[Rfam]
RNA sequence: CUUGGGGGAAAUAGUGGUCAUUCGAAUUGCGGAAAAAGACAUCAUCCCUUGAGGUAAAAUUAAGUUUGCUUCCUUUUACUCCCAAAAUCUUUUUACCGUGGAUAAAAAGAAUCAUCAUGAGGGUAUAAAAGGAACCAAAUUUAAAUUUACCUCAAGGGAUCUUAAUGUCGUUUUUCCAAACAGAACUGGUCACUAUUUUCCCCAAG
Numbered sequence: 001c002u003u004g005g006g007g008g009a010a011a012u013a014g015u016g017g018u019c020a021u022u023c024g025a026a027u028u029g030c031g032g033a034a035a036a037a038g039a040c041a042u043c044a045u046c047c048c049u050u051g052a053g054g055u056a057a058a059a060u061u062a063a064g065u066u067u068g069c070u071u072c073c074u075u076u077u078a079c080u081c082c083c084a085a086a087a088u089c090u091u092u093u094u095a096c097c098g099u100g101g102a103u104a105a106a107a108a109g110a111a112u113c114a115u116c117a118u119g120a121g122g123g124u125a126u127a128a129a130a131g132g133a134a135c136c137a138a139a140u141u142u143a144a145a146u147u148u149a150c151c152u153c154a155a156g157g158g159a160u161c162u163u164a165a166u167g168u169c170g171u172u173u174u175u176c177c178a179a180a181c182a183g184a185a186c187u188g189g190u191c192a193c194u195a196u197u198u199u200c201c202c203c204a205a206g
Stems, first nucleotide, its partner, number of pairs: 003204018021185003027179003031175005041166002044163001045159003049155005055149004060144009070134007077125005083119002089109007097101001